[Rfam]
RNA sequence: CCCUCGUCCAAAAGAUCGCUAUUCGAAGCAUGAAAACACGGAGAAGGUGCUCGCACCGUCUCAACCAAUCCUCUGCUUUGGGGAAAGUCCCCGGACACACUUCUUGCGGAAACGCGCCGCCAUAGAAGCACUGCGGCUCAUCCCUGCUUGCUGUCUCUCGCGCCCACCUUGAACCGUUCUCUCCGCCCUCGUGGCGGCCAUCCUGCCUUUUCGGGACCGGUUUUGUGCACCUGUGCCAGACGCGCCCUCUCCGCCGCCGCUCCCCGUUGCCCUCAAUGGACGAAGAUAUGAGUCCGCGCUUCGGGACGGUGGUUGGGCAAUCUGGUCCGGUCUGAUCCUGGCUCCUUGGUAGGCAUGGAGGAUUGGUCAAGGCGGGCCCACGGGACGUUCAAGCCUGGCAUGGGAGCAUUUCGUCAGUUUCAUUCCACAACCACAGUUAUGCGAUCGAGCCACGUUCUGGUCUGUCAGUACUCCCCUCGGGAGGAAAGCUUGCCGGGUGUGGUUUUACACGAUGGGGCUUACUCUUGGUACGAGG
Numbered sequence: 001c002c003c004u005c006g007u008c009c010a011a012a013a014g015a016u017c018g019c020u021a022u023u024c025g026a027a028g029c030a031u032g033a034a035a036a037c038a039c040g041g042a043g044a045a046g047g048u049g050c051u052c053g054c055a056c057c058g059u060c061u062c063a064a065c066c067a068a069u070c071c072u073c074u075g076c077u078u079u080g081g082g083g084a085a086a087g088u089c090c091c092c093g094g095a096c097a098c099a100c101u102u103c104u105u106g107c108g109g110a111a112a113c114g115c116g117c118c119g120c121c122a123u124a125g126a127a128g129c130a131c132u133g134c135g136g137c138u139c140a141u142c143c144c145u146g147c148u149u150g151c152u153g154u155c156u157c158u159c160g161c162g163c164c165c166a167c168c169u170u171g172a173a174c175c176g177u178u179c180u181c182u183c184c185g186c187c188c189u190c191g192u193g194g195c196g197g198c199c200a201u202c203c204u205g206c207c208u209u210u211u212c213g214g215g216a217c218c219g220g221u222u223u224u225g226u227g228c229a230c231c232u233g234u235g236c237c238a239g240a241c242g243c244g245c246c247c248u249c250u251c252c253g254c255c256g257c258c259g260c261u262c263c264c265c266g267u268u269g270c271c272c273u274c275a276a277u278g279g280a281c282g283a284a285g286a287u288a289u290g291a292g293u294c295c296g297c298g299c300u301u302c303g304g305g306a307c308g309g310u311g312g313u314u315g316g317g318c319a320a321u322c323u324g325g326u327c328c329g330g331u332c333u334g335a336u337c338c339u340g341g342c343u344c345c346u347u348g349g350u351a352g353g354c355a356u357g358g359a360g361g362a363u364u365g366g367u368c369a370a371g372g373c374g375g376g377c378c379c380a381c382g383g384g385a386c387g388u389u390c391a392a393g394c395c396u397g398g399c400a401u402g403g404g405a406g407c408a409u410u411u412c413g414u415c416a417g418u419u420u421c422a423u424u425c426c427a428c429a430a431c432c433a434c435a436g437u438u439a440u441g442c443g444a445u446c447g448a449g450c451c452a453c454g455u456u457c458u459g460g461u462c463u464g465u466c467a468g469u470a471c472u473c474c475c476c477u478c479g480g481g482a483g484g485a486a487a488g489c490u491u492g493c494c495g496g497g498u499g500u501g502g503u504u505u506u507a508c509a510c511g512a513u514g515g516g517g518c519u520u521a522c523u524c525u526u527g528g529u530a531c532g533a534g535g
Base pairs, nucleotide, nucleotide: 002535003534004533005532006531007530008528009527010526011525014446015445016444017443018442019441023081024080025079026078027077028076029075041062042061043060044059046057047056048055049054085520086519087518089517090516091515092514105116106115107114108113259407260406261405262404263403264402268400269399270398271397278390279389280388281387448504449503450502451501452500453499454498455497456496457495
Rfam assigns this 535-nucleotide RNA sequence from Magnaporthiopsis poae to the family "RNase MRP". By type it is a ribozyme. The source organism's lineage runs through Eukaryota, Dikarya, Pezizomycotina, Sordariomycetes and Magnaporthiopsis poae. It scores 101 bits against the family's covariance model.